[Rfam]
RNA: mir-728 microRNA precursor family
Organism: Etheostoma spectabile
RNA sequence: AAAUGUAGUAGACUAUAAGUAUACCUGAAACUGUAAGUAUACUAAGUACACUACGUUUAC
Numbered sequence: 001a002a003a004u005g006u007a008g009u010a011g012a013c014u015a016u017a018a019g020u021a022u023a024c025c026u027g028a029a030a031c032u033g034u035a036a037g038u039a040u041a042c043u044a045a046g047u048a049c050a051c052u053a054c055g056u057u058u059a060c
Base pairs, nucleotide, nucleotide: 001058002057003056004055005054006053007052008051009050012047013046014045018043019042020041021040022039023038024037